[Rfam]
RNA sequence: AUUGAUAAAGGCAAACCUGAUCGAAAGACAGGGACGCAAAGCCGCGGGUCUUCACGGAAAACCAUAAUUAUGGUUGCCGUAUGACAGCCGGGCCGCCAAAA
Numbered sequence: 001a002u003u004g005a006u007a008a009a010g011g012c013a014a015a016c017c018u019g020a021u022c023g024a025a026a027g028a029c030a031g032g033g034a035c036g037c038a039a040a041g042c043c044g045c046g047g048g049u050c051u052u053c054a055c056g057g058a059a060a061a062c063c064a065u066a067a068u069u070a071u072g073g074u075u076g077c078c079g080u081a082u083g084a085c086a087g088c089c090g091g092g093c094c095g096c097c098a099a100a101a
Stems, first nucleotide, its partner, number of pairs: 003098002011037002016032004021028002035087001041093003045090003048085003
Shown here is a 101-nucleotide RNA sequence from Paenibacillus sp. Leaf72, a member of the family "c-di-GMP-I-GGC riboswitch aptamer". A search with the family's covariance model found it, with a score of 64 bits. The family has 40 seed sequences and 1,298 matches in Rfam 15.1. The base pairs follow the family's consensus structure, which is taken from published work. Gene Ontology term of the family: cyclic-di-GMP binding.